[Rfam]
RNA sequence: UUUAUGCAUAGGCCUUUAGAUCAUCUAAAGAAUAUUCAACAUCAGGUGAUCUAAAGACCUAUACAUAAA
Numbered sequence: 001u002u003u004a005u006g007c008a009u010a011g012g013c014c015u016u017u018a019g020a021u022c023a024u025c026u027a028a029a030g031a032a033u034a035u036u037c038a039a040c041a042u043c044a045g046g047u048g049a050u051c052u053a054a055a056g057a058c059c060u061a062u063a064c065a066u067a068a069a
Stems, first nucleotide, its partner, number of pairs: 002068005009061004014056011026044001028042001030040001
The record is a 69-nucleotide RNA sequence from Cebus imitator, which matches "mir-1245 microRNA precursor family" in Rfam. The base pairs follow the family's consensus structure, which was predicted with RNAalifold. Rfam 15.1 lists 45 matches to the family in 23 species. A search with the family's covariance model found it, with a score of 79 bits. Rfam links the family to the GO terms RISC complex and miRNA-mediated post-transcriptional gene silencing.